RNA: U2 spliceosomal RNA
RNA sequence: AUAUCGUCUUGCAACCACACAGGGCUUAGAUCAUGUGUAGUAUCUGUUCUAAAUAGAUUGACAUCUAUUUCUCCUCGCUCCGGCGAGGAUUAUAUUGUCAUACACUUUUUCCUUGCGGGAGGUCACCGUUCAGGUGCUUGCAUCUCGGGACCUCGAGGAUGUCCUUGGCCCUACACUUCCGCCUCGAGACGUCCGCCGUCU
Numbered sequence: 001a002u003a004u005c006g007u008c009u010u011g012c013a014a015c016c017a018c019a020c021a022g023g024g025c026u027u028a029g030a031u032c033a034u035g036u037g038u039a040g041u042a043u044c045u046g047u048u049c050u051a052a053a054u055a056g057a058u059u060g061a062c063a064u065c066u067a068u069u070u071c072u073c074c075u076c077g078c079u080c081c082g083g084c085g086a087g088g089a090u091u092a093u094a095u096u097g098u099c100a101u102a103c104a105c106u107u108u109u110u111c112c113u114u115g116c117g118g119g120a121g122g123u124c125a126c127c128g129u130u131c132a133g134g135u136g137c138u139u140g141c142a143u144c145u146c147g148g149g150a151c152c153u154c155g156a157g158g159a160u161g162u163c164c165u166u167g168g169c170c171c172u173a174c175a176c177u178u179c180c181g182c183c184u185c186g187a188g189a190c191g192u193c194c195g196c197c198g199u200c201u
Stems, first nucleotide, its partner, number of pairs: 007030003011025002051070006072089007119154006126147001133144004157194006164186001167183003